The family of this 68-nucleotide sequence from Parazoarcus communis is "Betaproteobacteria toxic small RNA".
Rfam 15.1 lists 951 matches to the family in 508 species.
Rfam describes the family as follows. Overexpression in amino aid rich medium attenuates growth, suggesting role in repressing amino acid intake and metabolism.
Pairs were carried over by alignment from the consensus structure, which was predicted with WAR.
RNA sequence: CGUCUCCUCCACCCUCCUCCUUUGGUGUGGAUUUAGGCCCGAACACUCAAGUGAUCGGGCCUUUUCUU
Numbered sequence: 001c002g003u004c005u006c007c008u009c010c011a012c013c014c015u016c017c018u019c020c021u022u023u024g025g026u027g028u029g030g031a032u033u034u035a036g037g038c039c040c041g042a043a044c045a046c047u048c049a050a051g052u053g054a055u056c057g058g059g060c061c062u063u064u065u066c067u068u
Stems, first nucleotide, its partner, number of pairs: 008031005013025002036061007